[Rfam]
RNA sequence: GUAGUUGGAUUCACAUCAAUCCACAUGUGUUGGGGUAGGUUAUAGUGUAACUUGAACUAAAUUCCACCUCAAUCUACUUCAACACAUGUGGAUUGAGGUGAAUACGACA
Numbered sequence: 001g002u003a004g005u006u007g008g009a010u011u012c013a014c015a016u017c018a019a020u021c022c023a024c025a026u027g028u029g030u031u032g033g034g035g036u037a038g039g040u041u042a043u044a045g046u047g048u049a050a051c052u053u054g055a056a057c058u059a060a061a062u063u064c065c066a067c068c069u070c071a072a073u074c075u076a077c078u079u080c081a082a083c084a085c086a087u088g089u090g091g092a093u094u095g096a097g098g099u100g101a102a103u104a105c106g107a108c109a
Stems, first nucleotide, its partner, number of pairs: 004108004009103006016096017035077007045067003
RNA: MIR5565 microRNA precursor family
Organism: Sorghum bicolor